RNA sequence: CUAGCGGCUGAUUGUCCAAACGCAAUUCUUGUGACAUUUGAACGCAACGCCAAGAAUUGUGCCUGGACAUCUGUUGCUGG
Numbered sequence: 001c002u003a004g005c006g007g008c009u010g011a012u013u014g015u016c017c018a019a020a021c022g023c024a025a026u027u028c029u030u031g032u033g034a035c036a037u038u039u040g041a042a043c044g045c046a047a048c049g050c051c052a053a054g055a056a057u058u059g060u061g062c063c064u065g066g067a068c069a070u071c072u073g074u075u076g077c078u079g080g
Base pairs, nucleotide, nucleotide: 002079003078004077005076006075007074010071011070012069014068015067016066017065018064021061022060023059024058025057026056027055028054029053030052031051